[Rfam]
RNA sequence: GUUGAAGUUCCAUCUACAAAUGGAUAAGACUUCCGUCUUAAUGUAUUAAGAAUCCUUGAAGUUGAAGGAGCUAUACCCAAUAUCUUAUGAAAACAAGAUGCUGGGUAUAGCUCCCUU
Number, nucleotide and partner (000 for none) at each position: 001g000002u000003u000004g000005a000006a000007g000008u000009u024010c023011c022012a021013u020014c000015u000016a000017c000018a000019a000020a013021u012022g011023g010024a009025u000026a000027a000028g000029a000030c000031u000032u000033c000034c000035g000036u000037c000038u000039u000040a000041a000042u000043g000044u000045a000046u000047u000048a000049a000050g000051a000052a000053u000054c000055c000056u000057u000058g000059a000060a000061g000062u000063u000064g117065a116066a000067g114068g113069a112070g111071c110072u109073a108074u107075a106076c105077c000078c103079a102080a000081u000082a099083u098084c097085u096086u095087a000088u000089g000090a000091a000092a000093a000094c000095a086096a085097g084098a083099u082100g000101c000102u079103g078104g000105g076106u075107a074108u073109a072110g071111c070112u069113c068114c067115c000116u065117u064
RNA: Plastid-psbA-1 3UTR RNA
Organism: Anemarrhena asphodeloides